[Rfam]
RNA sequence: AGGAGCCAUUCCUUUACUCGGAUCGUCCGGCACGUUCCUGCCGGUGAAGGGACCACAUC
Numbered sequence: 001a002g003g004a005g006c007c008a009u010u011c012c013u014u015u016a017c018u019c020g021g022a023u024c025g026u027c028c029g030g031c032a033c034g035u036u037c038c039u040g041c042c043g044g045u046g047a048a049g050g051g052a053c054c055a056c057a058u059c
Base pairs, nucleotide, nucleotide: 010051011050012049013048014047015046016045027044028043029042030041031040032039
RNA: msiK RNA
Organism: Streptomyces sp. S4.7